The family of this 141-nucleotide RNA from Stappia indica is "Alphaproteobacterial sRNA BjrC1505".
RNA sequence: UUUAGUCAUUUACCGUUUAUUAAGCUUUCCAAUUCAUAACUGUGGGUAUCCAGUCAUCUGGAUUUCGAGUGGCUCCUGUCCACUCUGUUUGACGCCUCCCUGUUAAUGACUUCGAGCCGCGGACGCCGCGGCUCUUUUUUU
Numbered sequence: 001u002u003u004a005g006u007c008a009u010u011u012a013c014c015g016u017u018u019a020u021u022a023a024g025c026u027u028u029c030c031a032a033u034u035c036a037u038a039a040c041u042g043u044g045g046g047u048a049u050c051c052a053g054u055c056a057u058c059u060g061g062a063u064u065u066c067g068a069g070u071g072g073c074u075c076c077u078g079u080c081c082a083c084u085c086u087g088u089u090u091g092a093c094g095c096c097u098c099c100c101u102g103u104u105a106a107u108g109a110c111u112u113c114g115a116g117c118c119g120c121g122g123a124c125g126c127c128g129c130g131g132c133u134c135u136u137u138u139u140u141u
Stems, first nucleotide, its partner, number of pairs: 001044001003042002006015001016038001021036001023034002026031001048063004067085006091104004114134009

The pairing is the family consensus, mapped onto this sequence.